[Rfam]
RNA sequence: UCUUUCAUUACUUGAGCAGGAUCUGUUCUAUAGGCUCGAGCAACUGUUUCCUUGAGUGUAAGGCAGACAGGCAUCAAAAUCUCGUUGAUGACACAAGACCUCAGUAUCAUAGCAUGACUAACGGCUGAGAUUUUGUGAGAUCAAGGCUAUAGAGUCAUUCUCAGCUGGUCAGCUAGUCUUAGCACCUGUUGGGUUGAUCCUAGGGUUGUCUAAAAGACC
Numbered sequence: 001u002c003u004u005u006c007a008u009u010a011c012u013u014g015a016g017c018a019g020g021a022u023c024u025g026u027u028c029u030a031u032a033g034g035c036u037c038g039a040g041c042a043a044c045u046g047u048u049u050c051c052u053u054g055a056g057u058g059u060a061a062g063g064c065a066g067a068c069a070g071g072c073a074u075c076a077a078a079a080u081c082u083c084g085u086u087g088a089u090g091a092c093a094c095a096a097g098a099c100c101u102c103a104g105u106a107u108c109a110u111a112g113c114a115u116g117a118c119u120a121a122c123g124g125c126u127g128a129g130a131u132u133u134u135g136u137g138a139g140a141u142c143a144a145g146g147c148u149a150u151a152g153a154g155u156c157a158u159u160c161u162c163a164g165c166u167g168g169u170c171a172g173c174u175a176g177u178c179u180u181a182g183c184a185c186c187u188g189u190u191g192g193g194u195u196g197a198u199c200c201u202a203g204g205g206u207u208g209u210c211u212a213a214a215a216g217a218c219c
Base pairs, nucleotide, nucleotide: 001039002038005034006033008032014028015027016026017025018024019023044070045069046068047067049065050063051062052061053060054059080217081216082215098206099205100204101203103201104200106198107197108196109195111159112158121150123148124147125146126145129142130141131140132139133138161192162191163190164189165188167186168185169184

This 219-nucleotide RNA sequence from Musa troglodytarum belongs to the Rfam family "Plant small nucleolar RNA U3". Rfam describes the family as follows. Small nucleolar RNAs (snoRNAs) are involved in the processing and modification of rRNA in the nucleolus. There are two main classes of snoRNAs: the box C/D class, and the box H/ACA class. U3 snoRNA is a member of the box C/D class. Its Rfam clan is "U3 clan". Its family is annotated with RNA processing and nucleolus in the Gene Ontology. On this family, see Zwieb, Nucleic Acids Res 1997: "The uRNA database". NCBI's taxonomy places the organism under Eukaryota, Viridiplantae, Spermatophyta, Zingiberales, Musa.